[Rfam]
RNA sequence: GGUAUUCCUUAUCUGUGUCUACUUCGUUGAAUUGUCUGGAGCCUGUCUCGCUGUGCUCUUGCCACCAGAACACAGUGAGACAGGCCCGUCGUUUUACGUGCUGCGCGAUAUCCGGGG
Numbered sequence: 001g002g003u004a005u006u007c008c009u010u011a012u013c014u015g016u017g018u019c020u021a022c023u024u025c026g027u028u029g030a031a032u033u034g035u036c037u038g039g040a041g042c043c044u045g046u047c048u049c050g051c052u053g054u055g056c057u058c059u060u061g062c063c064a065c066c067a068g069a070a071c072a073c074a075g076u077g078a079g080a081c082a083g084g085c086c087c088g089u090c091g092u093u094u095u096a097c098g099u100g101c102u103g104c105g106c107g108a109u110a111u112c113c114g115g116g117g
Stems, first nucleotide, its partner, number of pairs: 001102004025091002039087001041085007050076005057069003
A member of the RNA family "tp2" from Erwinia sp. Leaf53, 117 nucleotides long. Taxonomically the source falls in Erwinia (Bacteria, Pseudomonadati, Pseudomonadota, Erwiniaceae). It is annotated as a small RNA.